[Rfam]
RNA sequence: AUCUUAUCGAAGAGCCGGCGGAGGGACAGGCCCAGCGAAGCCCAGCAACCACCAUAUAGGAUAUGGAAAGGUGCUAACCUGCAAGGCAUUGCCUUGAACGAUAAGAG
Numbered sequence: 001a002u003c004u005u006a007u008c009g010a011a012g013a014g015c016c017g018g019c020g021g022a023g024g025g026a027c028a029g030g031c032c033c034a035g036c037g038a039a040g041c042c043c044a045g046c047a048a049c050c051a052c053c054a055u056a057u058a059g060g061a062u063a064u065g066g067a068a069a070g071g072u073g074c075u076a077a078c079c080u081g082c083a084a085g086g087c088a089u090u091g092c093c094u095u096g097a098a099c100g101a102u103a104a105g106a107g
Stems, first nucleotide, its partner, number of pairs: 002106007014043001017042003023033003027081004044075004049071002052066003082096006

Notes:
Rfam assigns this 107-nucleotide RNA from Alkalicoccobacillus porphyridii to the family "SAM riboswitch aptamer (S box leader)". The organism belongs to Alkalicoccobacillus, within Bacteria.